[Rfam]
RNA: Metazoan signal recognition particle RNA
Nucleotides: 299
Base pairs, nucleotide, nucleotide: 001044002043003042004023005022006021007020008019009018010017028041029040030039046297047296048295049294050293051292052291053290058286059285060284061283062282066276067275068274070272071271072270077269078268079267080266081265082264083262084261085260086259087258091255092254094252095251097249102247103246104245106243107242108241109237110236112235113234114233115232116231118228119227120226121225122224123223124222125221126220128165129164130163132161133160134159136157137156138155139154140153142151143150144149168172175218176217177216178215179214186209187208188207193202194201195200
Number, partner (000 for none) and nucleotide at each position: 001044a002043c003042c004023g005022g006021g007020a008019g009018c010017g011000g012000c013000g014000g015000c016000g017010c018009g019008c020007u021006c022005c023004u024000g025000u026000a027000a028041u029040c030039c031000g032000g033000c034000u035000g036000c037000u038000c039030g040029g041028a042003g043002g044001u045000c046297g047296g048295g049294u050293u051292g052291c053290g054000u055000g056000g057000a058286u059285g060284g061283u062282u063000u064000g065000a066276g067275g068274u069000g070272g071271g072270g073000a074000c075000a076000a077269c078268u079267g080266c081265g082264c083262c084261g085260a086259g087258u088000c089000a090000g091255u092254c093000c094252g095251c096000g097249u098000u099000g100000a101000a102247c103246g104245g105000a106243c107242g108241u109237c110236c111000g112235c113234g114233c115232u116231a117000a118228g119227c120226u121225u122224g123223u124222c125221g126220u127000c128165a129164a130163u131000a132161u133160g134159g135000a136157c137156c138155c139154c140153g141000c142151g143150g144149g145000g146000u147000a148000g149144c150143c151142c152000a153140u154139g155138g156137g157136g158000c159134c160133c161132a162000g163130g164129u165128u166000a167000g168172c169000u170000a171000a172168g173000g174000a175218g176217a177216g178215g179214c180000g181000a182000a183000c184000c185000g186209g187208g188207c189000c190000a191000g192000a193202g194201g195200g196000g197000a198000a199000a200195c201194c202193c203000a204000g205000c206000a207188g208187c209186c210000a211000a212000a213000a214179g215178u216177c217176u218175c219000c220126g221125c222124g223123g224122u225121g226120a227119g228118c229000a230000g231116u232115a233114g234113u235112g236110g237109g238000a239000u240000a241108g242107c243106g244000c245104c246103u247102g248000c249097g250000a251095g252094u253000a254092g255091a256000g257000u258087g259086c260085u261084c262083g263000u264082g265081c266080g267079c268078a269077g270072c271071c272070u273000g274068g275067c276066c277000a278000a279000c280000a281000u282062a283061a284060c285059c286058a287000g288000a289000c290053c291052g292051c293050a294049a295048u296047c297046c298000a299000a